[Rfam]
RNA sequence: GGGCCUGUGGUCUAGUUGGUUAUGACACCGCCUUUACACGGCGGAGGUCCGGAGUUCGAAUCUCCGUGGGCCCA
Dot-bracket structure: (((((((..(((...........))).(((((.......))))).....(((((.......)))))))))))).
tRNA: a 74-nucleotide RNA from Methanospirillum lacunae.